[Rfam]
RNA sequence: UAGAAGAAUCUGUAAAGCUCAGGAGGGAUAGCGCCAGGAAUUAUAAUUAUGAUCUUCAUCAUCAUCAUAUUAUAACUGUGAUCUUUGGCGCUAUCUAUCCUGAGUUUCACGGCUUCUUCUU
Numbered sequence: 001u002a003g004a005a006g007a008a009u010c011u012g013u014a015a016a017g018c019u020c021a022g023g024a025g026g027g028a029u030a031g032c033g034c035c036a037g038g039a040a041u042u043a044u045a046a047u048u049a050u051g052a053u054c055u056u057c058a059u060c061a062u063c064a065u066c067a068u069a070u071u072a073u074a075a076c077u078g079u080g081a082u083c084u085u086u087g088g089c090g091c092u093a094u095c096u097a098u099c100c101u102g103a104g105u106u107u108c109a110c111g112g113c114u115u116c117u118u119c120u121u
Stems, first nucleotide, its partner, number of pairs: 010112001016106009026096010
RNA: MIR390 microRNA precursor family
Organism: Quercus lobata